[Rfam]
RNA sequence: UAUUUUCUAUCUUUGACUUAUGAAAACAAUUACAAACAAUACUUGGUGGUGGAACAAUUUACGUCAAACGUCGUGAACUAAGCACCUAUGGUAUUUUUUGAAUACAAAUAUAAAAGGCUUGUC
Numbered sequence: 001u002a003u004u005u006u007c008u009a010u011c012u013u014u015g016a017c018u019u020a021u022g023a024a025a026a027c028a029a030u031u032a033c034a035a036a037c038a039a040u041a042c043u044u045g046g047u048g049g050u051g052g053a054a055c056a057a058u059u060u061a062c063g064u065c066a067a068a069c070g071u072c073g074u075g076a077a078c079u080a081a082g083c084a085c086c087u088a089u090g091g092u093a094u095u096u097u098u099u100g101a102a103u104a105c106a107a108a109u110a111u112a113a114a115a116g117g118c119u120u121g122u123c
Stems, first nucleotide, its partner, number of pairs: 035098002039094005046087001048086004056079001058077003061071003
This 123-nucleotide RNA sequence from Flavobacterium sp. PL002 belongs to the Rfam family "Bacteroidete tryptophan peptide leader RNA". A search with the family's covariance model found it, with a score of 78 bits. The base pairs follow the family's consensus structure, which is taken from published work. Lineage of the source: Bacteria > Pseudomonadati > Bacteroidota > Flavobacteriales > Flavobacterium. By type it is a cis-regulatory leader.